[Rfam]
RNA sequence: CCUGCCCCAGCUUGUGUUGCAGGCGUGGCUGCAGUGCCACGUUUGUGUCAUUCAGUGGGAGAGAGGACAAGGCGAGGUCUUCCCCUGGUGCUCUGACCCACGUGGACUCCCAGGAUUGCUCAACAGCCUGACAUU
Numbered sequence: 001c002c003u004g005c006c007c008c009a010g011c012u013u014g015u016g017u018u019g020c021a022g023g024c025g026u027g028g029c030u031g032c033a034g035u036g037c038c039a040c041g042u043u044u045g046u047g048u049c050a051u052u053c054a055g056u057g058g059g060a061g062a063g064a065g066g067a068c069a070a071g072g073c074g075a076g077g078u079c080u081u082c083c084c085c086u087g088g089u090g091c092u093c094u095g096a097c098c099c100a101c102g103u104g105g106a107c108u109c110c111c112a113g114g115a116u117u118g119c120u121c122a123a124c125a126g127c128c129u130g131a132c133a134u135u
Stems, first nucleotide, its partner, number of pairs: 002061002005058002007055001010052001014048002019046004024041006070129004074121003081115003087109002089106001091104001093102001
Shown here is a 135-nucleotide RNA sequence from Formicarius rufipectus, a member of the family "Small nucleolar RNA SNORA17". It scores 53 bits against the family's covariance model. Rfam classes the family as an H/ACA-box small nucleolar RNA. Rfam describes the family as follows. snoRNA ACA 17 belongs to the H/ACA family of snoRNAs and is predicted to guide pseudouridylation of the 28S rRNA at positions U4659 and U4598. The base pairs follow the family's consensus structure, which was predicted with RNAalifold.